[Rfam]
RNA sequence: UGCACUGAAUGGUAUCUGCACUCAACAGUUUAUUCCUGCUGAUGUGUUCAAAAGACAGUGCGACAGGAAUUCAGUGUGCGGCAUCGUUGGUUUUCUUGGCUUUGUGCAUGUUAAACCUGGUAUUUCUACUGAUACAUUG
Numbered sequence: 001u002g003c004a005c006u007g008a009a010u011g012g013u014a015u016c017u018g019c020a021c022u023c024a025a026c027a028g029u030u031u032a033u034u035c036c037u038g039c040u041g042a043u044g045u046g047u048u049c050a051a052a053a054g055a056c057a058g059u060g061c062g063a064c065a066g067g068a069a070u071u072c073a074g075u076g077u078g079c080g081g082c083a084u085c086g087u088u089g090g091u092u093u094u095c096u097u098g099g100c101u102u103u104g105u106g107c108a109u110g111u112u113a114a115a116c117c118u119g120g121u122a123u124u125u126c127u128a129c130u131g132a133u134a135c136a137u138u139g
Stems, first nucleotide, its partner, number of pairs: 002061006015054001017052001018047004024040001026038003065127006071120004081107004